RNA sequence: UGGCGAGCUAGUCCGGGUGAUUCGGCGUCACCUGUAACCUGAAAUCGUCGGCAUGCAGGGGACGAAGCCUGAUGAAGGCGCUCUGGCUGUAUGAAGGCCUCAAUCCUGGACGUUGAAAGCCCGUCCUGCUUGGUUAGCGGUGGCGCUGUGCCAUGCUGGAGAGCAUGGCGCUCGCCUUAAUUGCGGGGACCGGCACAGGCCCGGAAGGGAGCAUGCUUACCGUGAACAACUGACGCUUGCAGGGUAGCGGGCUGGAGGAAAGGGCUGAGAUAACCUUCAUAUUGCCGGGCGUCGACUGAUGGCGUGCUCGCUA
Numbered sequence: 001u002g003g004c005g006a007g008c009u010a011g012u013c014c015g016g017g018u019g020a021u022u023c024g025g026c027g028u029c030a031c032c033u034g035u036a037a038c039c040u041g042a043a044a045u046c047g048u049c050g051g052c053a054u055g056c057a058g059g060g061g062a063c064g065a066a067g068c069c070u071g072a073u074g075a076a077g078g079c080g081c082u083c084u085g086g087c088u089g090u091a092u093g094a095a096g097g098c099c100u101c102a103a104u105c106c107u108g109g110a111c112g113u114u115g116a117a118a119g120c121c122c123g124u125c126c127u128g129c130u131u132g133g134u135u136a137g138c139g140g141u142g143g144c145g146c147u148g149u150g151c152c153a154u155g156c157u158g159g160a161g162a163g164c165a166u167g168g169c170g171c172u173c174g175c176c177u178u179a180a181u182u183g184c185g186g187g188g189a190c191c192g193g194c195a196c197a198g199g200c201c202c203g204g205a206a207g208g209g210a211g212c213a214u215g216c217u218u219a220c221c222g223u224g225a226a227c228a229a230c231u232g233a234c235g236c237u238u239g240c241a242g243g244g245u246a247g248c249g250g251g252c253u254g255g256a257g258g259a260a261a262g263g264g265c266u267g268a269g270a271u272a273a274c275c276u277u278c279a280u281a282u283u284g285c286c287g288g289g290c291g292u293c294g295a296c297u298g299a300u301g302g303c304g305u306g307c308u309c310g311c312u313a
Stems, first nucleotide, its partner, number of pairs: 001313008011063004015033007038059004043054001067303003074296001077293007086285002089282009099269004104264004111257001113255001118253007125243005132236001133234005139227001140178001142176004148171010181225006192217004200209003
Dot-bracket structure: ((((((((..(((((((((((.....)))))))....((((.(..........).))))))))...(((....(..(((((((..((.(((((((((.((((.((((...(.(....((((((((((((..((((((.((.((((..((((((((((....)))))))))).)))).)..((((((.....((((....(((....)))....))))..)))))).)..))))).)..)))))...))))))).).)...)))).))))....))))))))).)).)))))))..)....)))..))))))))
Archaeal signal recognition particle RNA: a 313-nucleotide RNA from Methanocella conradii. Pairs were carried over by alignment from the consensus structure, which is taken from published work.